[Rfam]
RNA sequence: GGCUAGUCCAAGUGCAAUGGUGUUUUCAACUAAUUAAUUAUAACCAGUUACAGAUUUCUUUGUUCCUUCUCCACUCCCACUGCUUCACUUGACUAGCUUAA
Numbered sequence: 001g002g003c004u005a006g007u008c009c010a011a012g013u014g015c016a017a018u019g020g021u022g023u024u025u026u027c028a029a030c031u032a033a034u035u036a037a038u039u040a041u042a043a044c045c046a047g048u049u050a051c052a053g054a055u056u057u058c059u060u061u062g063u064u065c066c067u068u069c070u071c072c073a074c075u076c077c078c079a080c081u082g083c084u085u086c087a088c089u090u091g092a093c094u095a096g097c098u099u100a101a
Base pairs, nucleotide, nucleotide: 001098002097003096004095005094006093007092008091010090011089014086016081018079019078020077022076032064033063034062036060037059

Y RNA: a 101-nucleotide RNA sequence from Mandrillus leucophaeus. Lineage of the source: Eukaryota > Euteleostomi > Dipnotetrapodomorpha > Cercopithecidae > Mandrillus. Rfam classes the family as a non-coding RNA gene.